[Rfam]
RNA: Guanidine-II riboswitch aptamer (mini-ykkC)
RNA sequence: CGGUGAGGACGACCUCCCCCUCUACGGGCAUCACCUCGGGACGACCCGA
Numbered sequence: 001c002g003g004u005g006a007g008g009a010c011g012a013c014c015u016c017c018c019c020c021u022c023u024a025c026g027g028g029c030a031u032c033a034c035c036u037c038g039g040g041a042c043g044a045c046c047c048g049a
Stems, first nucleotide, its partner, number of pairs: 002019002005016004036049005